[Rfam]
RNA sequence: GAGUGAAACCUGGUUAAGGAACUCGGCAAAUUAGCCCCGUAACUUCGGAAGAAGGGGUGCCUGCAGCGAUGCAGGCCGCAGAGAAAUGGCCCAACCGACUGUUUAUCAAAAACACAGCACUCUGCAAAGACGCAAGUCGAAGUAUAGGGUGUGACACGUGACCAAUGCCGAAAGAUUAAGGCAAGGGGUUAGCCGCAAGGCGAAGCUCUAAACCCAAGUCCCGGUGAAUGUCGGCCGUAACUAUAACGGUCCUAAGGUAGCGAAAUUCCUUGUCGGGUAAGUUCCGACCUGCACGAAUCGUGAAACGAGUUGGGCACUGUCUCAACCAGGCGCUCA
Numbered sequence: 001g002a003g004u005g006a007a008a009c010c011u012g013g014u015u016a017a018g019g020a021a022c023u024c025g026g027c028a029a030a031u032u033a034g035c036c037c038c039g040u041a042a043c044u045u046c047g048g049a050a051g052a053a054g055g056g057g058u059g060c061c062u063g064c065a066g067c068g069a070u071g072c073a074g075g076c077c078g079c080a081g082a083g084a085a086a087u088g089g090c091c092c093a094a095c096c097g098a099c100u101g102u103u104u105a106u107c108a109a110a111a112a113c114a115c116a117g118c119a120c121u122c123u124g125c126a127a128a129g130a131c132g133c134a135a136g137u138c139g140a141a142g143u144a145u146a147g148g149g150u151g152u153g154a155c156a157c158g159u160g161a162c163c164a165a166u167g168c169c170g171a172a173a174g175a176u177u178a179a180g181g182c183a184a185g186g187g188g189u190u191a192g193c194c195g196c197a198a199g200g201c202g203a204a205g206c207u208c209u210a211a212a213c214c215c216a217a218g219u220c221c222c223g224g225u226g227a228a229u230g231u232c233g234g235c236c237g238u239a240a241c242u243a244u245a246a247c248g249g250u251c252c253u254a255a256g257g258u259a260g261c262g263a264a265a266u267u268c269c270u271u272g273u274c275g276g277g278u279a280a281g282u283u284c285c286g287a288c289c290u291g292c293a294c295g296a297a298u299c300g301u302g303a304a305a306c307g308a309g310u311u312g313g314g315c316a317c318u319g320u321c322u323c324a325a326c327c328a329g330g331c332g333c334u335c336a
Stems, first nucleotide, its partner, number of pairs: 001335003009330007017322003034058005043048001059076007077081001089315007096307002100114003117152008125142001129138003155302004160232003165229002167225004174220003180214002185209005192201002233251006252256001262289001272288006
RNA: Bacterial large subunit ribosomal RNA, nucleotides 1621 to 1956
Organism: Akkermansia muciniphila